[Rfam]
The family of this 89-nucleotide sequence from Sulfuricella sp. is "c-di-GMP-I riboswitch aptamer". GEMM was predicted in a large-scale screen for bacterial structured RNA regulatory elements. Pairs were carried over by alignment from the consensus structure, which is taken from published work.

Nucleotides: 089
Base pairs, nucleotide, nucleotide: 012038013037017033018032019031023028041083042082043081044080046079047078048077050074051073052072057068058067059066060065
Number, partner (000 for none) and nucleotide at each position: 001000u002000u003000c004000u005000g006000a007000a008000a009000a010000a011000g012038g013037c014000u015000a016000a017033c018032u019031c020000a021000c022000u023028c024000g025000a026000a027000a028023g029000u030000c031019g032018a033017g034000g035000g036000c037013g038012c039000a040000a041083a042082a043081u044080c045000a046079c047078c048077g049000a050074g051073u052072c053000u054000a055000c056000c057068g058067g059066a060065c061000a062000u063000c064000c065060g066059u067058c068057c069000c070000a071000u072052g073051a074050u075000u076000g077048c078047g079046g080044g081043g082042u083041u084000g085000c086000c087000a088000g089000g